[Rfam]
RNA: UnaL2 LINE 3' element
RNA sequence: AGUACUCAUAUUGUAAGUCGCUUUGGAUAAAAGCGUCUGCUAAAUGACUAAAU
Numbered sequence: 001a002g003u004a005c006u007c008a009u010a011u012u013g014u015a016a017g018u019c020g021c022u023u024u025g026g027a028u029a030a031a032a033g034c035g036u037c038u039g040c041u042a043a044a045u046g047a048c049u050a051a052a053u
Base pairs, nucleotide, nucleotide: 012042013040014039015038019035020034021033022032023031024030